This 81-nucleotide sequence from Trichogramma brassicae belongs to the Rfam family "mir-927 microRNA precursor family". The organism belongs to Trichogramma, within Eukaryota. Rfam links the family to the GO terms miRNA-mediated post-transcriptional gene silencing and RISC complex. The family's consensus secondary structure was predicted with RNAalifold.
Nucleotides: 081
Stems, first nucleotide, its partner, number of pairs: 010075002013072008022063003027058007035050002
Number, partner (000 for none) and nucleotide at each position: 001000a002000g003000a004000g005000u006000c007000u008000u009000a010075u011074u012000u013072g014071u015070u016069u017068u018067a019066g020065a021000a022063u023062u024061c025000c026000u027058a028057c029056g030055c031054u032053u033052u034000a035050c036049c037000g038000g039000u040000a041000u042000a043000a044000a045000g046000a047000a048000u049036g050035g051000c052033a053032a054031a055030g056029u057028g058027u059000u060000u061024g062023a063022a064000u065020u066019c067018u068017g069016g070015g071014a072013c073000u074011a075010a076000u077000a078000a079000a080000c081000u

A search with the family's covariance model found it, with a score of 63 bits.